[Rfam]
RNA sequence: CUUCCGAAGUUUCCCCCAGGAUAGCUGGUGCAUUUUAAUAUUAUAUAAAAUAAUCUUAUCUGGUAAAGCGAAUGAUUAGAGGCCUUAGGGUCGAAACGAUCUUAACCUAUUCUCUUUAAAUGGGUAACAGCCUUAACUUUCUUGAUAUGAAGUUCAAGGUUAUGAAAUAAUGUGCCCAGUGGGCCACUUUUGGUAAGCAGAACUGGCGCUGUGGGAUGAACCAAACGUAAUGUUACGGUGCCCAAAUUAACAACGUUGAGAGGCGUUGGUUGCUUAAAACAGCAGGACGGUGAUCAUGGAAGUCGAAAUCCGCUAAGGAGUGUGUAACAACUCACCUGCCGAAGCAACUAGCCCCUAAGUUGUAUACCUAUACAUUACCGCUAAAGUGGAUGAUUUAUAUUACUUGUGAUAUAAAUUUUGCAACUGCCAUUGCAUGGAUCUGCCAUUGGUACAGAU
Number, nucleotide and partner (000 for none) at each position: 001c392002u000003u390004c389005c388006g000007a000008a000009g000010u023011u000012u021013c020014c019015c000016c000017c000018a000019g014020g013021a012022u000023a010024g000025c000026u000027g176028g175029u174030g173031c172032a171033u000034u000035u000036u000037a000038a000039u000040a000041u000042u000043a000044u000045a000046u000047a000048a000049a000050a000051u000052a000053a000054u129055c000056u127057u126058a125059u124060c123061u122062g000063g000064u000065a000066a117067a115068g114069c000070g000071a000072a000073u000074g000075a113076u000077u000078a110079g000080a108081g107082g106083c000084c000085u105086u104087a103088g102089g101090g100091u000092c098093g000094a000095a000096a000097c000098g092099a000100u090101c089102u088103u087104a086105a085106c082107c081108u080109a000110u078111u000112c000113u075114c068115u067116u000117u066118a000119a000120a000121u000122g061123g060124g059125u058126a057127a056128c000129a054130g000131c159132c158133u157134u156135a154136a153137c152138u151139u150140u000141c000142u000143u000144g000145a000146u000147a000148u000149g000150a139151a138152g137153u136154u135155c000156a134157a133158g132159g131160u000161u000162a000163u000164g000165a000166a000167a000168u000169a000170a000171u032172g031173u030174g029175c028176c027177c000178a000179g000180u000181g000182g000183g207184c206185c205186a204187c000188u202189u201190u200191u199192g198193g000194u000195a000196a000197g000198c192199a191200g190201a189202a188203c000204u186205g185206g184207c183208g000209c000210u000211g000212u223213g222214g221215g000216a000217u000218g000219a000220a000221c214222c213223a212224a000225a000226c000227g378228u377229a376230a375231u374232g000233u372234u000235a000236c000237g368238g367239u366240g000241c000242c000243c000244a000245a000246a365247u000248u364249a000250a000251c362252a361253a360254c000255g000256u000257u000258g000259a000260g000261a000262g354263g353264c000265g352266u351267u350268g349269g348270u347271u346272g345273c344274u343275u000276a000277a000278a000279a000280c000281a000282g339283c338284a337285g336286g335287a000288c312289g311290g310291u000292g000293a000294u306295c305296a000297u000298g000299g000300a000301a000302g000303u000304c000305g295306a294307a000308a000309u000310c290311c289312g288313c317314u000315a000316a000317g313318g333319a000320g000321u000322g331323u330324g000325u000326a000327a000328c000329a000330a323331c322332u000333c318334a000335c286336c285337u284338g283339c282340c000341g000342a000343a274344g273345c272346a271347a270348c269349u268350a267351g266352c265353c263354c262355c000356u000357a000358a000359g000360u253361u252362g251363u000364a248365u246366a239367c238368c237369u000370a000371u000372a233373c000374a231375u230376u229377a228378c227379c000380g000381c000382u000383a000384a000385a000386g000387u000388g005389g004390a003391u000392g001393a000394u000395u000396u451397a000398u448399a447400u000401u445402a000403c000404u442405u000406g440407u000408g439409a000410u000411a000412u000413a000414a000415a435416u434417u000418u000419u000420g000421c000422a000423a000424c000425u000426g000427c000428c000429a000430u000431u000432g000433c000434a416435u415436g000437g000438a000439u408440c406441u000442g404443c000444c000445a401446u000447u399448g398449g000450u000451a396452c000453a000454g000455a000456u000
Eukaryotic large subunit ribosomal RNA: a 456-nucleotide part of an RNA from Drosophila yakuba. The base pairs follow the family's consensus structure, which is taken from published work. The organism belongs to Sophophora, within Eukaryota.